The family of this 63-nucleotide sequence from Paracoccus liaowanqingii is "terC RNA". The family's consensus secondary structure is taken from published work. Taxonomically the source falls in Paracoccus (Bacteria, Pseudomonadati, Rhodobacterales, Paracoccaceae).
RNA sequence: UUGCGGGACCGGGCCCCUCUGGCAAAGUGAUCAGGCGAUCCUUUGCGAUGUCGGACCGCAUCG
Numbered sequence: 001u002u003g004c005g006g007g008a009c010c011g012g013g014c015c016c017c018u019c020u021g022g023c024a025a026a027g028u029g030a031u032c033a034g035g036c037g038a039u040c041c042u043u044u045g046c047g048a049u050g051u052c053g054g055a056c057c058g059c060a061u062c063g
Stems, first nucleotide, its partner, number of pairs: 006057002009054004022046006029039001